This 65-nucleotide RNA sequence from Noviherbaspirillum saxi belongs to the Rfam family "Betaproteobacteria toxic small RNA". Rfam 15.1 lists 951 matches to the family in 508 species.
[Rfam]
RNA sequence: CGUCUCCUCCAACUCUUCUUGAAUUGGAUUCAGCCCGCCCUCGAAAGAUUGGCGGGCUUUUUUUU
Numbered sequence: 001c002g003u004c005u006c007c008u009c010c011a012a013c014u015c016u017u018c019u020u021g022a023a024u025u026g027g028a029u030u031c032a033g034c035c036c037g038c039c040c041u042c043g044a045a046a047g048a049u050u051g052g053c054g055g056g057c058u059u060u061u062u063u064u065u
Stems, first nucleotide, its partner, number of pairs: 008028005013021001032058008
Overexpression in amino aid rich medium attenuates growth, suggesting role in repressing amino acid intake and metabolism. A search with the family's covariance model found it, with a score of 59 bits.